[Rfam]
RNA: Lysine riboswitch aptamer
Organism: Maledivibacter halophilus
RNA sequence: UUGUGAUAUAGAGGCCGCAGUUUGUAAUGAAUACUUCAGAUUAAACUAUUGGGAAAUUAAGUUCUGUAGGAAAGGUACAACUGCCGAAACACAUAUCUAACCCAUAACAUAUGUGUUGGGGCUAUACUGAACAAGUAUAGUACUGUCAUCAUUAGAAUGCCCAGUCUUUUGAUGGUGUGCUAUUUCACAC
Numbered sequence: 001u002u003g004u005g006a007u008a009u010a011g012a013g014g015c016c017g018c019a020g021u022u023u024g025u026a027a028u029g030a031a032u033a034c035u036u037c038a039g040a041u042u043a044a045a046c047u048a049u050u051g052g053g054a055a056a057u058u059a060a061g062u063u064c065u066g067u068a069g070g071a072a073a074g075g076u077a078c079a080a081c082u083g084c085c086g087a088a089a090c091a092c093a094u095a096u097c098u099a100a101c102c103c104a105u106a107a108c109a110u111a112u113g114u115g116u117u118g119g120g121g122c123u124a125u126a127c128u129g130a131a132c133a134a135g136u137a138u139a140g141u142a143c144u145g146u147c148a149u150c151a152u153u154a155g156a157a158u159g160c161c162c163a164g165u166c167u168u169u170u171g172a173u174g175g176u177g178u179g180c181u182a183u184u185u186c187a188c189a190c
Stems, first nucleotide, its partner, number of pairs: 006185001008183004017084006024078003034069002037066004088117009098107001118144002121141008146175006